[Rfam]
RNA sequence: GUAAGAAGGCAGAGGUAGCGAAAGCUUGAGAAAUACUCUUAGAACCUGAUCUAGUUAAUACUAGCGUAGGAAGUCCUAAAAUAUUUUUU
Numbered sequence: 001g002u003a004a005g006a007a008g009g010c011a012g013a014g015g016u017a018g019c020g021a022a023a024g025c026u027u028g029a030g031a032a033a034u035a036c037u038c039u040u041a042g043a044a045c046c047u048g049a050u051c052u053a054g055u056u057a058a059u060a061c062u063a064g065c066g067u068a069g070g071a072a073g074u075c076c077u078a079a080a081a082u083a084u085u086u087u088u089u
Base pairs, nucleotide, nucleotide: 006077008075009074010073011039012038013037014036016033017026018025019024045070046069047068048067051064052063053062054061
RNA: TPP riboswitch aptamer (THI element)
Organism: Mesoplasma florum